Shown here is an 81-nucleotide RNA sequence from Scyliorhinus torazame, a member of the family "mir-221 microRNA precursor family".
It scores 78 bits against the family's covariance model.
The family's consensus secondary structure was predicted with RNAalifold.
[Rfam]
Nucleotides: 081
Base pairs, nucleotide, nucleotide: 013065014064015063016062017061018060020058021057022056023054024053025052026051027050028049032048033047034046035045
Number, partner (000 for none) and nucleotide at each position: 001000c002000u003000c004000a005000u006000c007000g008000c009000u010000u011000g012000c013065u014064c015063a016062g017061u018060a019000g020058u021057c022056a023054g024053u025052g026051u027050a028049g029000a030000u031000u032048c033047u034046g035045u036000c037000u038000u039000c040000a041000u042000c043000c044000a045035g046034c047033a048032g049028c050027u051026a052025c053024a054023u055000c056022u057021g058020g059000c060018u061017a062016c063015u064014g065013g066000g067000u068000c069000u070000c071000u072000g073000a074000u075000g076000g077000u078000a079000u080000u081000g

Lineage of the source: Eukaryota > Craniata > Selachii > Scyliorhinidae > Scyliorhinus.